Rfam assigns this 85-nucleotide RNA from Pontibacillus marinus to the family "c-di-GMP-I riboswitch aptamer".
Rfam 15.1 lists 5,092 matches to the family in 1,772 species.
Pairs were carried over by alignment from the consensus structure, which is taken from published work.
[Rfam]
RNA sequence: AUUAGAUAAAGGCAAACUCAUUGAAAAAUGAGGACGCAAAGCCACGGAUCUAAGGUGUGUAGACUAUGAUAGCCGGGUUGCCAAG
Number, nucleotide and partner (000 for none) at each position: 001a000002u000003u000004a000005g000006a000007u000008a000009a000010a000011g000012g037013c036014a000015a000016a000017c032018u031019c030020a029021u028022u027023g000024a000025a000026a000027a022028a021029u020030g019031a018032g017033g000034a000035c000036g013037c012038a000039a000040a079041g078042c077043c076044a000045c075046g074047g073048a070049u069050c068051u000052a000053a000054g000055g064056u063057g000058u000059g000060u000061a000062g000063a056064c055065u000066a000067u000068g050069a049070u048071a000072g000073c047074c046075g045076g043077g042078u041079u040080g000081c000082c000083a000084a000085g000